Annotation
Shown here is a 35-nucleotide RNA sequence from Muntiacus reevesi, a member of the family "Iron response element I". NCBI's taxonomy places the organism under Eukaryota, Gnathostomata, Euteleostomi, Amniota, Muntiacus. It is annotated as a cis-regulatory element.
[Rfam]
RNA sequence: CGGUUUCCUGCUUCAACAGGCCUUGAACGGAACCG
Numbered sequence: 001c002g003g004u005u006u007c008c009u010g011c012u013u014c015a016a017c018a019g020g021c022c023u024u025g026a027a028c029g030g031a032a033c034c035g
Base pairs, nucleotide, nucleotide: 001035002034003033004032005031007030008029010028012027013026014025015024016023
Dot-bracket structure: (((((.((.(.(((((......)))))))))))))